Source information:
ylbH leader: a 122-nucleotide RNA from Terrilactibacillus tamarindi. Lineage of the source: Bacteria > Bacillati > Bacillota > Bacillaceae > Terrilactibacillus. The family's RNA type in Rfam is cis-regulatory leader. This family is a putative regulatory RNA structure that is found upstream of the ylbH gene in B. subtilis and related low GC Gram-positive bacteria.

[Rfam]
RNA sequence: AUAGAAAAAAACCUGCAGGAUACCCUGCAGGUUGUCUAAAUUCAUACAUAGUUGUAUGUCAGACAAAUGGGAGAGGAGAAACCAGCGGAACACUUAUGGGGAAACGUAAGCCUCCGCGGUUG
Numbered sequence: 001a002u003a004g005a006a007a008a009a010a011a012c013c014u015g016c017a018g019g020a021u022a023c024c025c026u027g028c029a030g031g032u033u034g035u036c037u038a039a040a041u042u043c044a045u046a047c048a049u050a051g052u053u054g055u056a057u058g059u060c061a062g063a064c065a066a067a068u069g070g071g072a073g074a075g076g077a078g079a080a081a082c083c084a085g086c087g088g089a090a091c092a093c094u095u096a097u098g099g100g101g102a103a104a105c106g107u108a109a110g111c112c113u114c115c116g117c118g119g120u121u122g
Stems, first nucleotide, its partner, number of pairs: 011032009033071001035069001037067001043058005083119001085117005093110004